[Rfam]
Rfam assigns this 122-nucleotide RNA to the family "TPP riboswitch aptamer (THI element)".

RNA sequence: CCAACCAGCGAGGGGUGCCGUUGCCAACCAUGGACAAGUUCCAUCGUGUUGACCGGCUGAGAUCAUACCCUUAGAACCUGAUCCGGUUUAUACCGGCGGAGGGACUGCUGUGACUCUCGUUG
Numbered sequence: 001c002c003a004a005c006c007a008g009c010g011a012g013g014g015g016u017g018c019c020g021u022u023g024c025c026a027a028c029c030a031u032g033g034a035c036a037a038g039u040u041c042c043a044u045c046g047u048g049u050u051g052a053c054c055g056g057c058u059g060a061g062a063u064c065a066u067a068c069c070c071u072u073a074g075a076a077c078c079u080g081a082u083c084c085g086g087u088u089u090a091u092a093c094c095g096g097c098g099g100a101g102g103g104a105c106u107g108c109u110g111u112g113a114c115u116c117u118c119g120u121u122g
Stems, first nucleotide, its partner, number of pairs: 006110005011071004016065001017057004077102003083096004
A search with the family's covariance model found it, with a score of 67 bits.